[Rfam]
Nucleotides: 045
Stems, first nucleotide, its partner, number of pairs: 003019003006015003026045006
Number, partner (000 for none) and nucleotide at each position: 001000g002000g003019u004018u005017g006015a007014g008013c009000g010000u011000a012000a013008g014007c015006u016000u017005c018004a019003a020000g021000a022000c023000a024000u025000a026045g027044u028043u029042c030041c031040c032000a033000a034000g035000g036000g037000u038000g039000a040031g041030g042029g043028a044027a045026c